RNA: tRNA
RNA sequence: GGGCUUGUAGCGCAGCUGGUAGAGCGCCUCCAUGGCAUGGAGGAGGUCAGGAGUUCGAGUCUCCUCAGGUCCA
Numbered sequence: 001g002g003g004c005u006u007g008u009a010g011c012g013c014a015g016c017u018g019g020u021a022g023a024g025c026g027c028c029u030c031c032a033u034g035g036c037a038u039g040g041a042g043g044a045g046g047u048c049a050g051g052a053g054u055u056c057g058a059g060u061c062u063c064c065u066c067a068g069g070u071c072c073a
Stems, first nucleotide, its partner, number of pairs: 001072007010025002013022001027043005049065005